Nucleotides: 131
Stems, first nucleotide, its partner, number of pairs: 002059004007054002020043001022041001026037001028035002072123002075120003086109003091103002094100001
Number, partner (000 for none) and nucleotide at each position: 001000u002059g003058c004057c005056u006000c007054c008053u009000g010000g011000u012000g013000u014000u015000u016000a017000c018000c019000a020043c021000a022041g023000g024000c025000u026037g027000c028035g029034u030000u031000u032000g033000u034029a035028c036000a037026c038000u039000g040000a041022c042000a043020g044000u045000a046000g047000a048000g049000g050000a051000a052000g053008a054007g055000a056005a057004g058003g059002c060000a061000g062000c063000g064000u065000a066000a067000a068000u069000c070000u071000a072123c073122c074000a075120c076119a077118u078000a079000u080000a081000c082000a083000c084000c085000u086109c087108a088107g089000c090000c091103a092102g093000g094100c095000c096000c097000a098000g099000u100094g101000a102092c103091u104000a105000u106000u107088c108087u109086g110000u111000a112000u113000u114000g115000u116000g117000u118077a119076u120075g121000g122073g123072g124000a125000g126000g127000g128000a129000g130000g131000a

Notes
Shown here is a 131-nucleotide sequence from Tupaia belangeri, a member of the family "Small nucleolar RNA SNORA51". NCBI's taxonomy places the organism under Eukaryota, Opisthokonta, Bilateria, Tetrapoda, Tupaia belangeri. Pairs were carried over by alignment from the consensus structure, which was predicted with PFOLD. Its family is annotated with nucleolus and RNA processing in the Gene Ontology. By type it is an H/ACA-box small nucleolar RNA.